[Rfam]
RNA sequence: CCCUUAUCUUUUAAAAGUUUCAAGUUAGUCCCGUAUCUUUAUUUUAGGUUUCAAGCUGGUCCCUUCCGUCAAUUUUUUUACUGUUACCGGUAAAUUUGGACACGUGUCAUCUGUCCAAGAAUGCCACGUGUAAAAAUUAGUUUGCCACGUGUCCAAAUUUAACGGAAAUAGUUAAAAAAUUGACGGAAGGGACCAACUUGAAACAUAAAAUAAAGAUAAGGGACCAACUUGAAACUUUUACAAGAUAAGGGA
Numbered sequence: 001c002c003c004u005u006a007u008c009u010u011u012u013a014a015a016a017g018u019u020u021c022a023a024g025u026u027a028g029u030c031c032c033g034u035a036u037c038u039u040u041a042u043u044u045u046a047g048g049u050u051u052c053a054a055g056c057u058g059g060u061c062c063c064u065u066c067c068g069u070c071a072a073u074u075u076u077u078u079u080a081c082u083g084u085u086a087c088c089g090g091u092a093a094a095u096u097u098g099g100a101c102a103c104g105u106g107u108c109a110u111c112u113g114u115c116c117a118a119g120a121a122u123g124c125c126a127c128g129u130g131u132a133a134a135a136a137u138u139a140g141u142u143u144g145c146c147a148c149g150u151g152u153c154c155a156a157a158u159u160u161a162a163c164g165g166a167a168a169u170a171g172u173u174a175a176a177a178a179a180u181u182g183a184c185g186g187a188a189g190g191g192a193c194c195a196a197c198u199u200g201a202a203a204c205a206u207a208a209a210a211u212a213a214a215g216a217u218a219a220g221g222g223a224c225c226a227a228c229u230u231g232a233a234a235c236u237u238u239u240a241c242a243a244g245a246u247a248a249g250g251g252a
Stems, first nucleotide, its partner, number of pairs: 002250007023229003028224002031221002034218010045207002
Dot-bracket structure: .(((((((..............(((..((.((.((((((((((.((...............................................................................................................................................................)).)))))))))).)).))..)))..............)))))))..
The family of this 252-nucleotide sequence from Trifolium subterraneum is "MIR2655 microRNA precursor family". NCBI's taxonomy places the organism under Eukaryota, Viridiplantae, Fabaceae, Papilionoideae, Trifolium. Its family is annotated with miRNA-mediated post-transcriptional gene silencing and RISC complex in the Gene Ontology.